[Rfam]
RNA sequence: AUUAUCCUGCAUUGUACGUGACUCAUUCUUGUUUAAAACCGUACUAUUUUUUCGGGAUUCCAAUAUGAAUUGACUGAUGCCAUGCCUGUAUUUCAGGAUCGCAGACAGGUCAAACUGCGGAAACCCACCUGCGAGAGCGGGUUUAUAAAACAAUUUGGGAUAAGGCAUAGGUGGGACUCAA
Numbered sequence: 001a002u003u004a005u006c007c008u009g010c011a012u013u014g015u016a017c018g019u020g021a022c023u024c025a026u027u028c029u030u031g032u033u034u035a036a037a038a039c040c041g042u043a044c045u046a047u048u049u050u051u052u053c054g055g056g057a058u059u060c061c062a063a064u065a066u067g068a069a070u071u072g073a074c075u076g077a078u079g080c081c082a083u084g085c086c087u088g089u090a091u092u093u094c095a096g097g098a099u100c101g102c103a104g105a106c107a108g109g110u111c112a113a114a115c116u117g118c119g120g121a122a123a124c125c126c127a128c129c130u131g132c133g134a135g136a137g138c139g140g141g142u143u144u145a146u147a148a149a150a151c152a153a154u155u156u157g158g159g160a161u162a163a164g165g166c167a168u169a170g171g172u173g174g175g176a177c178u179c180a181a
Stems, first nucleotide, its partner, number of pairs: 005176006013167003017164001019162001031151004035146001037144001038142003054126003058122004065116001070113005079102002085097004
The family of this 181-nucleotide sequence from Schinkia azotoformans is "6S / SsrS RNA". The base pairs follow the family's consensus structure, which is taken from published work. The family has 150 seed sequences and 5,006 matches in Rfam 15.1. By type it is a non-coding RNA gene.